[Rfam]
RNA sequence: GGUUUUAACCCAGUAUCUCAAGGUACGCUUGGGCUUCUGACCAGAUAUUCUCUGUGUUAGAGAACCAACAGUUUUUGGGCAGCACUGAAGGGGGUUCCCCGAGUGCAAUAA
Numbered sequence: 001g002g003u004u005u006u007a008a009c010c011c012a013g014u015a016u017c018u019c020a021a022g023g024u025a026c027g028c029u030u031g032g033g034c035u036u037c038u039g040a041c042c043a044g045a046u047a048u049u050c051u052c053u054g055u056g057u058u059a060g061a062g063a064a065c066c067a068a069c070a071g072u073u074u075u076u077g078g079g080c081a082g083c084a085c086u087g088a089a090g091g092g093g094g095u096u097c098c099c100c101g102a103g104u105g106c107a108a109u110a111a
Stems, first nucleotide, its partner, number of pairs: 007036002009032002013028002016025001018023001038059004042054004084109001086107002089104001092100002